[Rfam]
RNA sequence: UUCUUAUCAAGAGAGACGGAGGGACUGGCCCGACGAUGUCUCAGCAACCAGCCAUUCAUGGUCAGGUGCUAAUUCCAUCAGGUCGCGAUGAUCUGAAAGAUAAGAA
Dot-bracket structure: ((((((((....(((((...(((..[[[)))......)))))((((.(((.(.......).)..))))))...(]]].((((((.....))))))..)))))))))
RNA: SAM riboswitch aptamer (S box leader)
Organism: Halalkalibacter oceani